[Rfam]
RNA sequence: AGAAAUCUUCGGGGCGGGGUGAAAGUCCCCACCGGCGGUAAUGCGAAAGAUUUACUCUUUCGACGAGCCCGCGAGCCGAGGCGAAGCAAGGGCGGACGCCCUCAAACGCCAAAGCAGGAUUCCGGUGAGAGCCCGGAGCCGACGGUCAUAGUCCGGAUGAGAGAAGAUUGAC
Number, nucleotide and partner (000 for none) at each position: 001a000002g000003a000004a169005a168006u167007c166008u165009u164010c163011g000012g000013g000014g000015c000016g000017g029018g028019g027020u000021g000022a000023a000024a000025g000026u000027c019028c018029c017030c000031a152032c151033c141034g140035g072036c071037g070038g069039u000040a000041a000042u000043g000044c000045g000046a000047a000048a000049g000050a000051u000052u000053u000054a000055c000056u000057c000058u000059u000060u000061c000062g000063a000064c000065g000066a000067g139068c138069c038070c037071g036072c035073g000074a000075g000076c118077c117078g000079a000080g000081g000082c000083g000084a000085a000086g000087c000088a000089a000090g000091g000092g000093c000094g000095g000096a000097c000098g000099c000100c000101c000102u000103c000104a000105a000106a000107c000108g000109c000110c000111a000112a000113a000114g000115c000116a000117g077118g076119a000120u000121u137122c136123c135124g134125g133126u000127g000128a000129g000130a000131g000132c000133c125134c124135g123136g122137a121138g068139c067140c034141g033142a000143c155144g154145g153146u000147c000148a000149u000150a000151g032152u031153c145154c144155g143156g000157a000158u000159g000160a000161g000162a000163g010164a009165a008166g007167a006168u005169u004170g000171a000172c000
This 172-nucleotide RNA from Hyphococcus luteus belongs to the Rfam family "FMN riboswitch aptamer (RFN element)". A search with the family's covariance model found it, with a score of 96 bits.